A member of the RNA family "Plastid-atpF group II-D1 intron" from Gossypium australe, 53 nucleotides long. The organism belongs to Gossypium, within Eukaryota. Plastid atpF is a non-coding RNA (ncRNA) recognised in plastids. It has been reported in the intron group II-D1 region of ATP synthase (atpF) genes. The family's consensus secondary structure was predicted with LocARNA. Its family is annotated with Group II intron splicing in the Gene Ontology. On this family, see Richter et al., Plant Commun 2023: "Retrograde signaling in plants: A critical review focusing on the GUN pathway and beyond". The match comes from Rfam's covariance-model search (58 bits).
RNA sequence: AAAAAAAAAUUCGAUAUAGAACACUCAUGUUGAUAAAACGAUUUGAGCCCCUU
Number, nucleotide and partner (000 for none) at each position: 001a000002a000003a000004a000005a000006a000007a000008a000009a000010u000011u033012c032013g031014a030015u029016a028017u027018a000019g000020a000021a000022c000023a000024c000025u000026c000027a017028u016029g015030u014031u013032g012033a011034u000035a000036a000037a000038a000039c000040g000041a000042u000043u000044u000045g000046a000047g000048c000049c000050c000051c000052u000053u000